[Rfam]
RNA sequence: AGUAUAAAUGUGAAUAUAUAAAAACUCAGUCAUAAAAGGGAAGACCAUCCCUCUGAGGUGUACUUGAAUGUAUCGGAACAACGUUGACUGAUAGGUUAAUGUGAUGCCGUUUAGUACUGAAGUGAUUUAGUACUAAGAAGUACUGGUAGAGGUACAACUACAAGAGUAUAUCGCUUAUAACAAUGAAUAAUAAAGCGCAAUGAGGUUGUACGUGUCAUAAAGAGAAGCACUCUGGAUAAGAGAGUGCUUACUCGCCACAAACCAUGUAAGUUAUGGGAAUAGCUUAGGAUGUUAGGUGGUAAAAUCCAAUAAGACGCCUGUGUAGAAGAAAACUAAUGUAGAAAUACAUUAGAAUACAACGAGUUGGUACAAGUAGCCAAAGUCUACGCUUAUGUGAAAAACAAAUAAUUUUUUAAUGUUGGAGUACAUUAAACUUUAAAUUAAGCUGAAUGGUUGGUGAACGUUAAGGGUAGUUAGCCCCUUCAUAUCAUAGGUCUUUUUAAGACGGUUAAGAAAGUCGCGGAUGACGGUCCAAAGGCUCAGCUCUUAGUCGUAUGUUGCUUAAUAAUUUGCAGUUGUCGAAUAUAGUCGGGGGAAACCCCUGUAUAUAUUCACAUUUAUA
Number, nucleotide and partner (000 for none) at each position: 001a000002g000003u000004a000005u000006a000007a619008a618009u000010g000011u000012g000013a000014a612015u000016a000017u000018a000019u000020a000021a605022a000023a000024a000025c057026u056027c055028a054029g053030u000031c000032a000033u000034a000035a000036a000037a052038g051039g050040g049041a048042a000043g000044a000045c000046c000047a000048u041049c040050c039051c038052u037053c029054u028055g027056a026057g025058g000059u000060g169061u168062a167063c166064u165065u164066g000067a000068a000069u000070g000071u000072a000073u000074c109075g108076g107077a000078a105079c000080a000081a102082c101083g100084u099085u098086g097087a096088c095089u094090g000091a000092u000093a000094g089095g088096u087097u086098a085099a084100u083101g082102u081103g000104a000105u078106g000107c076108c075109g074110u137111u136112u135113a134114g133115u000116a000117c130118u129119g128120a127121a126122g000123u000124g000125a000126u121127u120128u119129a118130g117131u000132a000133c114134u113135a112136a111137g110138a000139a000140g155141u154142a153143c152144u151145g000146g000147u000148a000149g000150a000151g144152g143153u142154a141155c140156a000157a000158c000159u000160a000161c000162a000163a000164g065165a064166g063167u062168a061169u060170a000171u000172c000173g000174c000175u000176u000177a000178u000179a000180a603181c000182a000183a577184u000185g000186a000187a000188u572189a571190a570191u000192a000193a000194a000195g562196c000197g000198c366199a365200a364201u363202g000203a000204g000205g360206u359207u358208g357209u356210a355211c000212g317213u316214g315215u314216c313217a000218u000219a000220a000221a000222g000223a000224g000225a000226a000227g000228c000229a000230c244231u243232c242233u241234g000235g000236a000237u000238a000239a000240g000241a233242g232243a231244g230245u000246g000247c000248u000249u000250a000251c000252u000253c000254g300255c299256c298257a297258c296259a000260a000261a000262c000263c291264a290265u289266g000267u286268a285269a284270g000271u000272u000273a000274u308275g307276g306277g305278a000279a000280u000281a000282g000283c000284u269285u268286a267287g000288g000289a265290u264291g263292u000293u000294a000295g000296g258297u257298g256299g255300u254301a000302a000303a000304a000305u277306c276307c275308a274309a000310u000311a000312a000313g216314a215315c214316g213317c212318c000319u000320g000321u388322g387323u386324a385325g384326a000327a000328g000329a000330a000331a000332a000333c000334u000335a000336a349337u348338g347339u346340a345341g000342a000343a000344a000345u340346a339347c338348a337349u336350u000351a000352g000353a000354a000355u210356a209357c208358a207359a206360c205361g000362a000363g201364u200365u199366g198367g000368u000369a000370c463371a000372a000373g000374u000375a000376g458377c457378c456379a455380a454381a000382g000383u000384c325385u324386a323387c322388g321389c000390u000391u000392a000393u000394g000395u000396g000397a000398a000399a000400a000401a000402c000403a000404a000405a000406u000407a000408a000409u000410u000411u000412u000413u000414u000415a000416a000417u000418g000419u000420u000421g000422g000423a000424g000425u000426a000427c000428a000429u000430u000431a000432a000433a000434c000435u000436u000437u000438a000439a000440a000441u000442u000443a000444a000445g544446c543447u542448g541449a000450a000451u000452g000453g000454u380455u379456g378457g377458u376459g000460a000461a000462c000463g370464u000465u000466a000467a483468g482469g481470g480471u000472a000473g000474u000475u000476a000477g000478c000479c000480c470481c469482u468483u467484c557485a556486u555487a000488u000489c000490a000491u000492a000493g000494g000495u504496c000497u000498u000499u000500u000501u000502a000503a000504g495505a000506c000507g554508g552509u000510u550511a000512a548513g547514a000515a000516a545517g540518u000519c537520g000521c000522g533523g532524a531525u530526g000527a000528c000529g000530g525531u524532c523533c522534a000535a000536a000537g519538g000539c000540u517541c448542a447543g446544c445545u516546c000547u513548u512549a000550g510551u000552c508553g000554u507555a486556u485557g484558u000559u000560g000561c000562u195563u000564a000565a000566u000567a000568a000569u000570u190571u189572g188573c000574a000575g000576u000577u183578g000579u000580c000581g000582a000583a000584u000585a000586u000587a000588g000589u000590c000591g602592g601593g600594g599595g000596a000597a000598a000599c594600c593601c592602c591603u180604g000605u021606a000607u000608a000609u000610a000611u000612u014613c000614a000615c000616a000617u000618u008619u007620a000621u000622a000
A member of the RNA family "ROOL RNA", 622 nucleotides long.
Rfam describes the family as follows. Firmicutes, Fusobacteria (1 example), Tenericutes (1 example).
The family's RNA type in Rfam is small RNA.
Rfam's curators put it in the seed alignment.